[Rfam]
RNA sequence: AAAAAUGUUUUCUAGGGUUCCGUAGCUACGGCUAGUCUGGUCCGAGAGAAAACGCACAGCAGUGGUUGCUGUGACACGGAAGGAUAAAAGCCUGGGAGAA
Numbered sequence: 001a002a003a004a005a006u007g008u009u010u011u012c013u014a015g016g017g018u019u020c021c022g023u024a025g026c027u028a029c030g031g032c033u034a035g036u037c038u039g040g041u042c043c044g045a046g047a048g049a050a051a052a053c054g055c056a057c058a059g060c061a062g063u064g065g066u067u068g069c070u071g072u073g074a075c076a077c078g079g080a081a082g083g084a085u086a087a088a089a090g091c092c093u094g095g096g097a098g099a100a
Base pairs, nucleotide, nucleotide: 007053008052009051010050011049012048015043016042020040021039022037023034024033025032026031055073056072057071058070059069060068061067075095077098081093082092083091
Shown here is a 100-nucleotide RNA from Aureibacillus halotolerans, a member of the family "Guanidine-I riboswitch aptamer". The organism belongs to Aureibacillus, within Bacteria.